[Rfam]
RNA: Clostridiales-1 RNA
RNA sequence: UGAUACCAGAGUCCCAAGGUCAUGCGUUUCAUGCUCGCAUGAAAAAGCAUGACCUUGGGACCCGAACAAACAUGAGAAAGCAACCCGAUUAGGGUGUAUUUCGAAUGUUUGUAAGAUUGUGAGAGCUCGAAGAGCGUAACAAUCUGUGUAUCA
Numbered sequence: 001u002g003a004u005a006c007c008a009g010a011g012u013c014c015c016a017a018g019g020u021c022a023u024g025c026g027u028u029u030c031a032u033g034c035u036c037g038c039a040u041g042a043a044a045a046a047g048c049a050u051g052a053c054c055u056u057g058g059g060a061c062c063c064g065a066a067c068a069a070a071c072a073u074g075a076g077a078a079a080g081c082a083a084c085c086c087g088a089u090u091a092g093g094g095u096g097u098a099u100u101u102c103g104a105a106u107g108u109u110u111g112u113a114a115g116a117u118u119g120u121g122a123g124a125g126c127u128c129g130a131a132g133a134g135c136g137u138a139a140c141a142a143u144c145u146g147u148g149u150a151u152c153a
Base pairs, nucleotide, nucleotide: 001153002152003151004150005149006148011061012060013059016056017055018054019053020052021051022050023049024048025047027045028044029042030041031040032039033038066112067111068110069109070108071107072106073105076102077101078100079099083095084094085093086092114145115144116143117142118141119140120139125135126134127133128132